[Rfam]
RNA sequence: GGCACGGCAUGGAAGGAAUGAAGUUCUUCGAAAGAAACUGUGGUAACAUGGGAUUAUGAGUUGAAUGGACUAGUGUUGUGUCUUCCGUCUUGAAACACGG
Numbered sequence: 001g002g003c004a005c006g007g008c009a010u011g012g013a014a015g016g017a018a019u020g021a022a023g024u025u026c027u028u029c030g031a032a033a034g035a036a037a038c039u040g041u042g043g044u045a046a047c048a049u050g051g052g053a054u055u056a057u058g059a060g061u062u063g064a065a066u067g068g069a070c071u072a073g074u075g076u077u078g079u080g081u082c083u084u085c086c087g088u089c090u091u092g093a094a095a096c097a098c099g100g
Base pairs, nucleotide, nucleotide: 001082002081003080004079005078006077007076008075009074010073015071016070023066024065025064026063029060033057038051039050040049041048042047085100086099087098088097
This 100-nucleotide part of an RNA from Methanobacterium sp. A39 belongs to the Rfam family "Archaeal large subunit ribosomal RNA". The organism belongs to Methanobacterium, within Archaea. The base pairs follow the family's consensus structure, which is taken from published work. The match comes from Rfam's covariance-model search (2889 bits).